[Rfam]
RNA: raiA RNA
RNA sequence: UCACCCUGGGUCUGUGGUUGCGGAUGCACAUCCUAGUCCAUGGCAGACGAGGCCGAAAGGAUCCACGUAAGCAGGGGCGUGAGCGCGCCUGCGAGCAUGGCUCGUCCUAGAGGUAAGCCGCACCGCUCGUUCUCCUAUCCAGAGGCAUGCCGCCUCGCGAGCGAGAGGGUUGCCAGUGAGGGGCCGUGGCCCCGAAGCGAAGGCCCCGGUGCGCGAGUGUGGGGGCAAAGACCAGGUCAGCCAGGGGGA
Numbered sequence: 001u002c003a004c005c006c007u008g009g010g011u012c013u014g015u016g017g018u019u020g021c022g023g024a025u026g027c028a029c030a031u032c033c034u035a036g037u038c039c040a041u042g043g044c045a046g047a048c049g050a051g052g053c054c055g056a057a058a059g060g061a062u063c064c065a066c067g068u069a070a071g072c073a074g075g076g077g078c079g080u081g082a083g084c085g086c087g088c089c090u091g092c093g094a095g096c097a098u099g100g101c102u103c104g105u106c107c108u109a110g111a112g113g114u115a116a117g118c119c120g121c122a123c124c125g126c127u128c129g130u131u132c133u134c135c136u137a138u139c140c141a142g143a144g145g146c147a148u149g150c151c152g153c154c155u156c157g158c159g160a161g162c163g164a165g166a167g168g169g170u171u172g173c174c175a176g177u178g179a180g181g182g183g184c185c186g187u188g189g190c191c192c193c194g195a196a197g198c199g200a201a202g203g204c205c206c207c208g209g210u211g212c213g214c215g216a217g218u219g220u221g222g223g224g225g226c227a228a229a230g231a232c233c234a235g236g237u238c239a240g241c242c243a244g245g246g247g248g249a
Stems, first nucleotide, its partner, number of pairs: 001249002004246006012240003015234005040220003043053001046106006062100002071092005077086003098227001119213005124163007167206004176198002182191003